[Rfam]
RNA: Mammalian CPEB3 ribozyme
Organism: Parnassius apollo
RNA sequence: CAAAUACCAUGGGGGGUCAUUGUAGAAGCGUGCUCGUCGCGACCCCUGCCAGUCCUGUUCAGGGCUGCAAUUCUCCU
Numbered sequence: 001c002a003a004a005u006a007c008c009a010u011g012g013g014g015g016g017u018c019a020u021u022g023u024a025g026a027a028g029c030g031u032g033c034u035c036g037u038c039g040c041g042a043c044c045c046c047u048g049c050c051a052g053u054c055c056u057g058u059u060c061a062g063g064g065c066u067g068c069a070a071u072u073c074u075c076c077u
Base pairs, nucleotide, nucleotide: 013046014045015044016043017042018041022076024074025073026072027071028040029039030038050067051066052065053064054063055062056061